[Rfam]
RNA: drz-agam-1 ribozyme
RNA sequence: UCCCCAGCAACUCCUAUCCCUACCUCCUCGCGGUACUGGCCGGGGUACGAGUAAUCUUUGUAACGGGCGACUAGAUUCGAAUCCGAGUCGGUUGG
Numbered sequence: 001u002c003c004c005c006a007g008c009a010a011c012u013c014c015u016a017u018c019c020c021u022a023c024c025u026c027c028u029c030g031c032g033g034u035a036c037u038g039g040c041c042g043g044g045g046u047a048c049g050a051g052u053a054a055u056c057u058u059u060g061u062a063a064c065g066g067g068c069g070a071c072u073a074g075a076u077u078c079g080a081a082u083c084c085g086a087g088u089c090g091g092u093u094g095g
Stems, first nucleotide, its partner, number of pairs: 013095002016092003021087001022034003045082002048079005